[Rfam]
RNA sequence: AGCGUCUUUCUUCGUGGGGGAACUUGACCCCCGCUACCGCUGAUGAUGAGCUUCAUCGACGCCAUGAAAGGCGAAGGCCAUGCGGUCGAGUCGAUCUGUAGGGUCCUUCGUGAGCAGGCUGCUAGAUCGCCGCG
Numbered sequence: 001a002g003c004g005u006c007u008u009u010c011u012u013c014g015u016g017g018g019g020g021a022a023c024u025u026g027a028c029c030c031c032c033g034c035u036a037c038c039g040c041u042g043a044u045g046a047u048g049a050g051c052u053u054c055a056u057c058g059a060c061g062c063c064a065u066g067a068a069a070g071g072c073g074a075a076g077g078c079c080a081u082g083c084g085g086u087c088g089a090g091u092c093g094a095u096c097u098g099u100a101g102g103g104u105c106c107u108u109c110g111u112g113a114g115c116a117g118g119c120u121g122c123u124a125g126a127u128c129g130c131c132g133c134g
Stems, first nucleotide, its partner, number of pairs: 016032005081134005092129002095126003098122004
Dot-bracket structure: ...............(((((.......)))))................................................(((((......((.(((((((.................)))).))).)))))))
About this RNA:
This 134-nucleotide RNA sequence from Tessaracoccus antarcticus belongs to the Rfam family "ALIL pseudoknot". Rfam classes the family as a cis-regulatory element. Lineage of the source: Bacteria > Bacillati > Actinomycetota > Propionibacteriales > Tessaracoccus. The literature on the family includes a 2008 paper in J Biol Chem by Mazauric et al., "Apical loop-internal loop RNA pseudoknots: a new type of stimulator of -1 translational frameshifting in bacteria".